[Rfam]
RNA sequence: CAGGCAUGCUGGAGCCCCGCAGCGGCGCCUGGGCGCUUGAAGGACAAGCACUUACCGCCCGACACCGUCACUCCAACCGGGGCUUAA
Numbered sequence: 001c002a003g004g005c006a007u008g009c010u011g012g013a014g015c016c017c018c019g020c021a022g023c024g025g026c027g028c029c030u031g032g033g034c035g036c037u038u039g040a041a042g043g044a045c046a047a048g049c050a051c052u053u054a055c056c057g058c059c060c061g062a063c064a065c066c067g068u069c070a071c072u073c074c075a076a077c078c079g080g081g082g083c084u085u086a087a
Stems, first nucleotide, its partner, number of pairs: 012085008023067003030061004035055001